This 397-nucleotide RNA sequence from Roseisalinus antarcticus belongs to the Rfam family "Bacterial RNase P class A". Lineage of the source: Bacteria > Pseudomonadota > Alphaproteobacteria > Roseobacteraceae > Roseisalinus. A search with the family's covariance model found it, with a score of 268 bits.

RNA sequence: GCGGAUGGCUGGAUGGCCGCUGGCGGGUUUCCCAGGAAACGCGUCGGAGGAAAGUCCGGACUCCAAGACGGCACGGUGCCGGGUAACGCCCGGCGGGGGCAACCCCAGGGAUAGCGCCACAGAGAACAGACCGCCCCGGGCUCGCCCGGGGUAAGGGUGAAACGGUGGGGUAAGAGCCCACCGGGCGCCGGGCAACCGGGGCCGCAUGGCAAGCCCCACCGGGAGCAAUGCCGAAUAGGGGCCUCGUGCCGGGUGCAAGCCCGGCAGGGACGCCUGACCCGAGAGGCCCGGGUAGGCAGCUGGAGGCGCGGGGGCAACCUCGCGCUCAGAGGAAUGGUCAUCCAUCCGGGGGGCGACCCCCGGGGGACAGAAUCCGGCUUACAGGUCGUCCGCGCAA
Numbered sequence: 001g002c003g004g005a006u007g008g009c010u011g012g013a014u015g016g017c018c019g020c021u022g023g024c025g026g027g028u029u030u031c032c033c034a035g036g037a038a039a040c041g042c043g044u045c046g047g048a049g050g051a052a053a054g055u056c057c058g059g060a061c062u063c064c065a066a067g068a069c070g071g072c073a074c075g076g077u078g079c080c081g082g083g084u085a086a087c088g089c090c091c092g093g094c095g096g097g098g099g100c101a102a103c104c105c106c107a108g109g110g111a112u113a114g115c116g117c118c119a120c121a122g123a124g125a126a127c128a129g130a131c132c133g134c135c136c137c138g139g140g141c142u143c144g145c146c147c148g149g150g151g152u153a154a155g156g157g158u159g160a161a162a163c164g165g166u167g168g169g170g171u172a173a174g175a176g177c178c179c180a181c182c183g184g185g186c187g188c189c190g191g192g193c194a195a196c197c198g199g200g201g202c203c204g205c206a207u208g209g210c211a212a213g214c215c216c217c218a219c220c221g222g223g224a225g226c227a228a229u230g231c232c233g234a235a236u237a238g239g240g241g242c243c244u245c246g247u248g249c250c251g252g253g254u255g256c257a258a259g260c261c262c263g264g265c266a267g268g269g270a271c272g273c274c275u276g277a278c279c280c281g282a283g284a285g286g287c288c289c290g291g292g293u294a295g296g297c298a299g300c301u302g303g304a305g306g307c308g309c310g311g312g313g314g315c316a317a318c319c320u321c322g323c324g325c326u327c328a329g330a331g332g333a334a335u336g337g338u339c340a341u342c343c344a345u346c347c348g349g350g351g352g353g354c355g356a357c358c359c360c361c362g363g364g365g366g367a368c369a370g371a372a373u374c375c376g377g378c379u380u381a382c383a384g385g386u387c388g389u390c391c392g393c394g395c396a397a
Stems, first nucleotide, its partner, number of pairs: 001393010011382001012342007020047006027040004052380003056377005061225004074221005079093005094108001095106004109216002114214002116210003131156002133152008164182006183205001184203003188199004229298004239289006306325008